[Rfam]
RNA sequence: CCUGCAACAACAUCCUGAUGCUGACAGAGUGGACCUCGUGGCUCCAGCAUCAGUGAUUUUGUUGCGGA
Numbered sequence: 001c002c003u004g005c006a007a008c009a010a011c012a013u014c015c016u017g018a019u020g021c022u023g024a025c026a027g028a029g030u031g032g033a034c035c036u037c038g039u040g041g042c043u044c045c046a047g048c049a050u051c052a053g054u055g056a057u058u059u060u061g062u063u064g065c066g067g068a
Stems, first nucleotide, its partner, number of pairs: 006063005012057003015053009